[Rfam]
RNA sequence: GUGACAGAAGAGAGUGAGCACACAUGGGCUUUUCUUGCAUGAUAUAGCUACCCAAGGACUCGUAUGCUUGAAGCCAUGUGUGCUCACCCUCUAUCUGUCAU
Number, nucleotide and partner (000 for none) at each position: 001g101002u100003g099004a098005c097006a096007g095008a094009a000010g091011a090012g089013a000014g087015u086016g085017a084018g083019c082020a081021c080022a000023c078024a077025u076026g075027g074028g000029c000030u000031u000032u000033u000034c000035u000036u000037g000038c000039a000040u000041g000042a000043u000044a000045u000046a000047g000048c000049u000050a000051c000052c000053c000054a000055a000056g000057g000058a000059c000060u000061c000062g000063u000064a000065u000066g000067c000068u000069u000070g000071a000072a000073g000074c027075c026076a025077u024078g023079u000080g021081u020082g019083c018084u017085c016086a015087c014088c000089c012090u011091c010092u000093a000094u008095c007096u006097g005098u004099c003100a002101u001
This 101-nucleotide RNA sequence from Artemisia annua belongs to the Rfam family "mir-156 microRNA precursor family". Gene Ontology terms of the family: miRNA-mediated post-transcriptional gene silencing and RISC complex. About the family: This family represents the plant microRNA (miRNA) precursor mir-156. Rfam 15.1 lists 1,401 matches to the family in 221 species. Taxonomically the source falls in Artemisia (Eukaryota, asterids, Asteroideae, Anthemideae).